Annotation: A member of the RNA family "Small nucleolar RNA SNORD58" from Crypturellus soui, 67 nucleotides long. The family's RNA type in Rfam is C/D-box small nucleolar RNA. It scores 66 bits against the family's covariance model. snoRNA U58 is found in introns 1, 3 and 6 of the ribosomal protein RPL17 gene in humans. Pairs were carried over by alignment from the consensus structure, which was predicted with PFOLD.
RNA sequence: UGACGGUGAUGACUGUCUUAGGACACCUUUGAAAUCAUUAUGAAACAAAAUUUUCAUUCUGAGUCAU
Dot-bracket structure: ((((..........................................................)))).